[Rfam]
RNA sequence: CCCCUGCUUCACCUCCCUGAGCAGGCCUCGACGUAACAGCGAAGAGGGUUCAGCCCCGGCAGUGCGCCGGGGUUUCUUUUU
Numbered sequence: 001c002c003c004c005u006g007c008u009u010c011a012c013c014u015c016c017c018u019g020a021g022c023a024g025g026c027c028u029c030g031a032c033g034u035a036a037c038a039g040c041g042a043a044g045a046g047g048g049u050u051c052a053g054c055c056c057c058g059g060c061a062g063u064g065c066g067c068c069g070g071g072g073u074u075u076c077u078u079u080u081u
Stems, first nucleotide, its partner, number of pairs: 003025006027046003032041002053073008
The family of this 81-nucleotide RNA sequence from Roseateles saccharophilus is "Burkholderia RNA 7 (anti-hemB)". This RNA motif was identified by computational search in b-proteobacteria Burkholderia. Lineage of the source: Bacteria > Betaproteobacteria > Burkholderiales > Sphaerotilaceae > Roseateles. The match comes from Rfam's covariance-model search (59 bits). Rfam 15.1 lists 479 matches to the family in 458 species. The family's consensus secondary structure is taken from published work.